This 74-nucleotide RNA sequence from Myotis myotis belongs to the Rfam family "mir-9193 microRNA precursor family".
Rfam links the family to the GO terms RISC complex and miRNA-mediated post-transcriptional gene silencing.
RNA sequence: CUUGGGGGGUGGGGGUCCCUCAGCCCGGAUUGUGAGAGGGCACAGGCCAGGCCGAGGGACCCCACUGGUGCACC
Numbered sequence: 001c002u003u004g005g006g007g008g009g010u011g012g013g014g015g016u017c018c019c020u021c022a023g024c025c026c027g028g029a030u031u032g033u034g035a036g037a038g039g040g041c042a043c044a045g046g047c048c049a050g051g052c053c054g055a056g057g058g059a060c061c062c063c064a065c066u067g068g069u070g071c072a073c074c
Stems, first nucleotide, its partner, number of pairs: 003072002006069001009066001012063010023052003027048002030045005